[Rfam]
RNA: mir-iab-4 microRNA precursor family
RNA sequence: CUCUUGUUACGUAUACUGAAGGUAUACCGGAUGGCUACUCACUCAGGAUACAUUCAGUAUACGUACACGAA
Numbered sequence: 001c002u003c004u005u006g007u008u009a010c011g012u013a014u015a016c017u018g019a020a021g022g023u024a025u026a027c028c029g030g031a032u033g034g035c036u037a038c039u040c041a042c043u044c045a046g047g048a049u050a051c052a053u054u055c056a057g058u059a060u061a062c063g064u065a066c067a068c069g070a071a
Base pairs, nucleotide, nucleotide: 002070003069005067006066009064010063011062012061013060014059015058016057017056018055019054020053022051023050024049025048027047028046030044031043034040
Dot-bracket structure: .((.((..((((((((((((.((((.((.((..(.....)..)).)))))).)))))))))))).)).)).